[Rfam]
Record summary: The record is a 119-nucleotide RNA sequence from Rahnella aquatilis, which matches "RtT RNA" in Rfam. It scores 62 bits against the family's covariance model. This family represents a bacterial cis-regulatory element known as RtT RNA. The exact function of RtT is unknown although it is thought that it may be involved in changing the cellular response in relation to amino acid starvation. The family's RNA type in Rfam is cis-regulatory element. The family has 57 seed sequences and 651 matches in Rfam 15.1. Lineage of the source: Bacteria > Pseudomonadota > Yersiniaceae > Rahnella > Rahnella aquatilis.

RNA sequence: AAUGCAGUGAAGCAGUGCAGGAUGAGAACCCUGGUUCGAGCCGGGCGAAGCGAGACGACAACGCGCAGGCGUUGCCCGCAGGGCGAGGUGAAACCGAGUCAAUCCAGCACGGCCCACCA
Numbered sequence: 001a002a003u004g005c006a007g008u009g010a011a012g013c014a015g016u017g018c019a020g021g022a023u024g025a026g027a028a029c030c031c032u033g034g035u036u037c038g039a040g041c042c043g044g045g046c047g048a049a050g051c052g053a054g055a056c057g058a059c060a061a062c063g064c065g066c067a068g069g070c071g072u073u074g075c076c077c078g079c080a081g082g083g084c085g086a087g088g089u090g091a092a093a094c095c096g097a098g099u100c101a102a103u104c105c106a107g108c109a110c111g112g113c114c115c116a117c118c119a
Stems, first nucleotide, its partner, number of pairs: 015110004020105002023102001035080001037078002042052002059074006